[Rfam]
RNA sequence: UUCUUAUGAAGAGAGAUGGAGGGAUUGGCCCUUUGAAGUCUCAGCAGCAGGUUCUGCUUGGCAGAAUACUGUGCUAAAUCCAGCAAGCCCGGCGGCUUGGAAGAUGAGAA
Number, nucleotide and partner (000 for none) at each position: 001u110002u109003c108004u107005u106006a105007u104008g000009a000010a000011g000012a000013g042014a041015g040016a039017u038018g000019g000020a000021g031022g030023g029024a000025u083026u082027g081028g080029c023030c022031c021032u000033u000034u000035g000036a000037a000038g017039u016040c015041u014042c013043a075044g074045c073046a072047g000048c071049a070050g000051g067052u066053u065054c064055u000056g000057c000058u000059u000060g000061g000062c000063a000064g054065a053066a052067u051068a000069c000070u049071g048072u046073g045074c044075u043076a000077a000078a000079u102080c028081c027082a026083g025084c099085a098086a097087g096088c095089c094090c000091g000092g000093c000094g089095g088096c087097u086098u085099g084100g000101a000102a079103g000104a007105u006106g005107a004108g003109a002110a001
Description:
Shown here is a 110-nucleotide RNA from Metabacillus lacus, a member of the family "SAM riboswitch aptamer (S box leader)". Rfam describes the family as follows. The SAM riboswitch is found upstream of a number of genes which code for proteins involved in methionine or cysteine biosynthesis in Gram-positive bacteria.